Rfam assigns this 88-nucleotide RNA sequence from Caenorhabditis remanei to the family "mir-44 microRNA precursor family". Pairs were carried over by alignment from the consensus structure, which was predicted with RNAalifold. For this family Rfam cites "Repertoire and evolution of miRNA genes in four divergent nematode species" (de Wit et al., Genome Res, 2009). Rfam 15.1 lists 66 matches to the family in 44 species. Lineage of the source: Eukaryota > Opisthokonta > Protostomia > Chromadorea > Caenorhabditis.
[Rfam]
RNA sequence: GAAUGGCCGAUCUGGAUGUGCUCGUUAGUCAUAGACGAAUCACAGAAAACAGUCAUAUGACUAGAGACACAUUCAGCUUGGCCUGGAU
Numbered sequence: 001g002a003a004u005g006g007c008c009g010a011u012c013u014g015g016a017u018g019u020g021c022u023c024g025u026u027a028g029u030c031a032u033a034g035a036c037g038a039a040u041c042a043c044a045g046a047a048a049a050c051a052g053u054c055a056u057a058u059g060a061c062u063a064g065a066g067a068c069a070c071a072u073u074c075a076g077c078u079u080g081g082c083c084u085g086g087a088u
Stems, first nucleotide, its partner, number of pairs: 005083005012076009022067002027062007